Actinobacteria sRNA Ms_IGR-7: a 117-nucleotide RNA from Nonomuraea solani. The match comes from Rfam's covariance-model search (54 bits). The family has 14 seed sequences and 463 matches in Rfam 15.1. The pairing is the family consensus, mapped onto this sequence. The organism belongs to Nonomuraea, within Bacteria. By type it is a small RNA.
RNA sequence: ACGAGGUGUCCUUUGCAGCGGGCUGAUGGAAGCCUAGAGAACUCCCAUCCUCCCAGGUCAAGGGACACCUCACUUCAUUUCCAGCACCUCGCCCCGGACUUCACGCUGUGAAUCCAG
Numbered sequence: 001a002c003g004a005g006g007u008g009u010c011c012u013u014u015g016c017a018g019c020g021g022g023c024u025g026a027u028g029g030a031a032g033c034c035u036a037g038a039g040a041a042c043u044c045c046c047a048u049c050c051u052c053c054c055a056g057g058u059c060a061a062g063g064g065a066c067a068c069c070u071c072a073c074u075u076c077a078u079u080u081c082c083a084g085c086a087c088c089u090c091g092c093c094c095c096g097g098a099c100u101u102c103a104c105g106c107u108g109u110g111a112a113u114c115c116a117g
Base pairs, nucleotide, nucleotide: 003071004070005069006068007067008066009065010064011063012062013061017058019056020054021053022052025049026048027047029045031043032042096115097114098113100112101111102110103109